Record summary:
The family of this 434-nucleotide part of an RNA from Sungouiella intermedia is "Eukaryotic large subunit ribosomal RNA". The organism belongs to Sungouiella, within Eukaryota.
RNA sequence: GGUAGUAGCAAAUAUUCAAAUGGGAACUUUGAAGACUGAAGUGGGGAAAGGUUCCAUGUCAACAGCAGAUGGACAUGGGUGAGUCGAUCCUAAGGCCUAGGUUAAACCUGAUUUAACUCCCACAUUUUUUGUGGGUGCGGCCGAAAGGGAAUCCGGUUAAGAUUCCGGAACUUGGAUGUGGAUCUCACGGUAACGUAACUGAAUGUGGAGACGCUGGCGUGGGCCCUGGGAGGAGUUUUCUUUUUCUUCUAACAGUCUGUGACCCUGGAAUUGGAUUAUCCGGAGAGGGGGUUUUGUGACUGGAAGAGCGCGGUGCUUCUGCCGCGUCCGGUGCGCCUACGACGGUCCUUGAAAAUCCACAGGAAGGAAUUGUUUUCACGCCAAGUCGUACUGAUAACCGCAGCAGGUCUCCAAGGUUAACAGCCUCUAGUUGA
Numbered sequence: 001g002g003u004a005g006u007a008g009c010a011a012a013u014a015u016u017c018a019a020a021u022g023g024g025a026a027c028u029u030u031g032a033a034g035a036c037u038g039a040a041g042u043g044g045g046g047a048a049a050g051g052u053u054c055c056a057u058g059u060c061a062a063c064a065g066c067a068g069a070u071g072g073a074c075a076u077g078g079g080u081g082a083g084u085c086g087a088u089c090c091u092a093a094g095g096c097c098u099a100g101g102u103u104a105a106a107c108c109u110g111a112u113u114u115a116a117c118u119c120c121c122a123c124a125u126u127u128u129u130u131g132u133g134g135g136u137g138c139g140g141c142c143g144a145a146a147g148g149g150a151a152u153c154c155g156g157u158u159a160a161g162a163u164u165c166c167g168g169a170a171c172u173u174g175g176a177u178g179u180g181g182a183u184c185u186c187a188c189g190g191u192a193a194c195g196u197a198a199c200u201g202a203a204u205g206u207g208g209a210g211a212c213g214c215u216g217g218c219g220u221g222g223g224c225c226c227u228g229g230g231a232g233g234a235g236u237u238u239u240c241u242u243u244u245u246c247u248u249c250u251a252a253c254a255g256u257c258u259g260u261g262a263c264c265c266u267g268g269a270a271u272u273g274g275a276u277u278a279u280c281c282g283g284a285g286a287g288g289g290g291g292u293u294u295u296g297u298g299a300c301u302g303g304a305a306g307a308g309c310g311c312g313g314u315g316c317u318u319c320u321g322c323c324g325c326g327u328c329c330g331g332u333g334c335g336c337c338u339a340c341g342a343c344g345g346u347c348c349u350u351g352a353a354a355a356u357c358c359a360c361a362g363g364a365a366g367g368a369a370u371u372g373u374u375u376u377c378a379c380g381c382c383a384a385g386u387c388g389u390a391c392u393g394a395u396a397a398c399c400g401c402a403g404c405a406g407g408u409c410u411c412c413a414a415g416g417u418u419a420a421c422a423g424c425c426u427c428u429a430g431u432u433g434a
Base pairs, nucleotide, nucleotide: 015033016032017031018030019029020028034432035431036430037429043412044411045410046409049392050391054078055077056076057075058074059073063071064070085388086387087386089148090147094142095141098110100109101108119135120134121133152169153168154167155166156165172384173383174382175381177380178379179378180377181376182374187196188195189194204361205360206359207358208357209356213346214345215344216343218341219340220339221338222337223336224335226331227330228329229249230248231247232246233245234244253302254301255300256299257298262292263291264290265289266288271283272282273281274280309326310325311324312323313322314321315320398407399406414426415425416424417423